[Rfam]
RNA sequence: UCGAGCUGUGCACCGGGCAGGAGCGGGGGAACCAGGUAGUUCGCCGUGCCCUGCUCAGCCCGUUCUUCGGGCUUUCCAGGCUGCGGCUCGGGGUGAAGCCGUCUCGUACGGCCGGGCUACCUCACGGCCCGAACCCGACAGCUCACCUCGUAGGCGUCGCAGAGGAACGCC
Numbered sequence: 001u002c003g004a005g006c007u008g009u010g011c012a013c014c015g016g017g018c019a020g021g022a023g024c025g026g027g028g029g030a031a032c033c034a035g036g037u038a039g040u041u042c043g044c045c046g047u048g049c050c051c052u053g054c055u056c057a058g059c060c061c062g063u064u065c066u067u068c069g070g071g072c073u074u075u076c077c078a079g080g081c082u083g084c085g086g087c088u089c090g091g092g093g094u095g096a097a098g099c100c101g102u103c104u105c106g107u108a109c110g111g112c113c114g115g116g117c118u119a120c121c122u123c124a125c126g127g128c129c130c131g132a133a134c135c136c137g138a139c140a141g142c143u144c145a146c147c148u149c150g151u152a153g154g155c156g157u158c159g160c161a162g163a164g165g166a167a168c169g170c171c
Stems, first nucleotide, its partner, number of pairs: 001022002023151006033090001091136003099111004114130004
RNA: c-di-AMP riboswitch aptamer (ydaO/yuaA leader)